[Rfam]
RNA sequence: AAGGAAAACCCCCACUAUCUUUCCUCGAACUUUGGCGGACUCGUGAAAGAUAGUAGGGGCGUUCACAGAAUACGGGAUAAGUAUAUAUGAAACCGUACCAGAGAUUCAACCCUGUGCAGUGUAUAAAUACACGGCACAAUCGCUCCGCCAU
Numbered sequence: 001a002a003g004g005a006a007a008a009c010c011c012c013c014a015c016u017a018u019c020u021u022u023c024c025u026c027g028a029a030c031u032u033u034g035g036c037g038g039a040c041u042c043g044u045g046a047a048a049g050a051u052a053g054u055a056g057g058g059g060c061g062u063u064c065a066c067a068g069a070a071u072a073c074g075g076g077a078u079a080a081g082u083a084u085a086u087a088u089g090a091a092a093c094c095g096u097a098c099c100a101g102a103g104a105u106u107c108a109a110c111c112c113u114g115u116g117c118a119g120u121g122u123a124u125a126a127a128u129a130c131a132c133g134g135c136a137c138a139a140u141c142g143c144u145c146c147g148c149c150a151u
Stems, first nucleotide, its partner, number of pairs: 002063002004060001009059004014054010033150007041142001043140001
Dot-bracket structure: .(((....((((.((((((((((.........[[[[[[[.[.[.)))))))))).))))).))............................................................................].].]]]]]]].

Rfam assigns this 151-nucleotide RNA from Escherichia coli to the family "Pseudoknot of the regulatory region of the repZ gene". The base pairs follow the family's consensus structure, which is taken from published work. Rfam links the family to the GO term regulation of translation. For this family Rfam cites "An RNA pseudoknot as the molecular switch for translation of the repZ gene encoding the replication initiator of IncIalpha plasmid ColIb-P9" (Asano and Mizobuchi, J Biol Chem, 1998). The source organism's lineage runs through Bacteria, Pseudomonadati, Gammaproteobacteria, Enterobacterales and Escherichia.